[Rfam]
RNA sequence: AAGUAGAUGCACCCUGAUAUACGACCUCCACCGUCAUAGGUGGGGGUUUUUUUU
Number, nucleotide and partner (000 for none) at each position: 001a000002a000003g012004u011005a000006g000007a000008u000009g000010c000011a004012c003013c000014c000015u000016g000017a000018u000019a000020u000021a000022c000023g000024a000025c046026c045027u044028c043029c042030a041031c040032c039033g000034u000035c000036a000037u000038a000039g032040g031041u030042g029043g028044g027045g026046g025047u000048u000049u000050u000051u000052u000053u000054u000

This 54-nucleotide RNA from Trichodesmium erythraeum belongs to the Rfam family "Nitrogen stress-induced RNA 1". The literature on the family includes a 2010 paper in J Mol Biol by Ionescu et al., "Heterocyst-specific transcription of NsiR1, a non-coding RNA encoded in a tandem array of direct repeats in cyanobacteria". The family has 17 seed sequences and 962 matches in Rfam 15.1. The pairing is the family consensus, mapped onto this sequence. Taxonomically the source falls in Trichodesmium erythraeum (Bacteria, Bacillati, Cyanophyceae, Microcoleaceae).